[Rfam]
RNA sequence: UUAAAAAAAAUAAAAUAGCCAAAUUUGAGUAUCAGAAGACCUACUAGUCUCCCCGGUUGAUCUCUAUAUUUCUGAGA
Numbered sequence: 001u002u003a004a005a006a007a008a009a010a011u012a013a014a015a016u017a018g019c020c021a022a023a024u025u026u027g028a029g030u031a032u033c034a035g036a037a038g039a040c041c042u043a044c045u046a047g048u049c050u051c052c053c054c055g056g057u058u059g060a061u062c063u064c065u066a067u068a069u070u071u072c073u074g075a076g077a
Stems, first nucleotide, its partner, number of pairs: 031057003037050004
RNA: Small nucleolar RNA U2-19
Organism: Enhydra lutris